This 74-nucleotide RNA sequence from Labeo rohita belongs to the Rfam family "Small nucleolar RNA SNORD47". Gene Ontology terms of the family: RNA processing and nucleolus. On this family, see Galardi et al., Mol Cell Biol 2002: "Purified box C/D snoRNPs are able to reproduce site-specific 2'-O-methylation of target RNA in vitro". The source organism's lineage runs through Eukaryota, Actinopterygii, Neopterygii, Labeoninae and Labeo. The match comes from Rfam's covariance-model search (70 bits).
RNA sequence: AACCGGUGAUGAAGAGAUUCUGCCAAAUGAAUCCGCUGAUUAUAUCCUUAUACCGUUCCAUAAAAUCUGAGGUU
Dot-bracket structure: ((((..................................................................))))